[Rfam]
RNA sequence: CCGCCUCGCUCAGGAGAGCGUCCCGAAAAGGGGCCGCCGAAGGCGCAGGCUGGUCACCAGCCGAACGCUCAGGCAAAAGGACUGGGCAACCUGC
Number, nucleotide and partner (000 for none) at each position: 001c000002c000003g000004c000005c000006u089007c000008g087009c086010u085011c084012a083013g082014g000015a000016g000017a000018g000019c000020g034021u033022c032023c031024c000025g000026a000027a000028a000029a000030g000031g023032g022033g021034c020035c000036g074037c073038c072039g070040a069041a000042g000043g068044c067045g066046c000047a000048g000049g061050c060051u000052g000053g000054u000055c000056a000057c000058c000059a000060g050061c049062c000063g000064a000065a000066c045067g044068c043069u040070c039071a000072g038073g037074c036075a000076a000077a000078a000079g000080g000081a000082c013083u012084g011085g010086g009087c008088a000089a006090c000091c000092u000093g000094c000